Shown here is a 93-nucleotide RNA sequence from Apis mellifera, a member of the family "mir-67 microRNA precursor family". The sequence is in the family's curated seed alignment. Rfam 15.1 lists 196 matches to the family in 188 species.

[Rfam]
RNA sequence: GGUCACGUGGACUCACUCAACCUGGGUGUGAUGCUUGCCUGUGUAUCAGGCCCUAGCGGUCAUCACAACCUUUUUGAGUGAGCGAACGCGACU
Numbered sequence: 001g002g003u004c005a006c007g008u009g010g011a012c013u014c015a016c017u018c019a020a021c022c023u024g025g026g027u028g029u030g031a032u033g034c035u036u037g038c039c040u041g042u043g044u045a046u047c048a049g050g051c052c053c054u055a056g057c058g059g060u061c062a063u064c065a066c067a068a069c070c071u072u073u074u075u076g077a078g079u080g081a082g083c084g085a086a087c088g089c090g091a092c093u
Base pairs, nucleotide, nucleotide: 008085010083012082013081014080015079016078017077018076019075020074024070025069027067028066029065030064031063032062033061
Source information:
A reference for the family is Cao et al. (2008), "Identification of conserved microRNAs in Bombyx mori (silkworm) and regulation of fibroin L chain production by microRNAs in heterologous system", Insect Biochem Mol Biol. Rfam links the family to the GO terms miRNA-mediated post-transcriptional gene silencing and RISC complex. The source organism's lineage runs through Eukaryota, Hymenoptera, Aculeata, Anthophila and Apis.